This 88-nucleotide sequence from Aquabacterium lacunae belongs to the Rfam family "c-di-GMP-I riboswitch aptamer". Rfam 15.1 lists 5,092 matches to the family in 1,772 species.
RNA sequence: AUUCACGCAUCGCAAACCGGGUGAAAGCCCGGGACGCAAAGCCACCGGCCUAACGCAGCUUCGCUGCCAUGGCAGCGGGGCUGCCGGU
Numbered sequence: 001a002u003u004c005a006c007g008c009a010u011c012g013c014a015a016a017c018c019g020g021g022u023g024a025a026a027g028c029c030c031g032g033g034a035c036g037c038a039a040a041g042c043c044a045c046c047g048g049c050c051u052a053a054c055g056c057a058g059c060u061u062c063g064c065u066g067c068c069a070u071g072g073c074a075g076c077g078g079g080g081c082u083g084c085c086g087g088u
Base pairs, nucleotide, nucleotide: 012037013036017032018031019030020029021028022027040082041081042080043079045078046077047076048073049072050071055067056066057065058064

It scores 77 bits against the family's covariance model.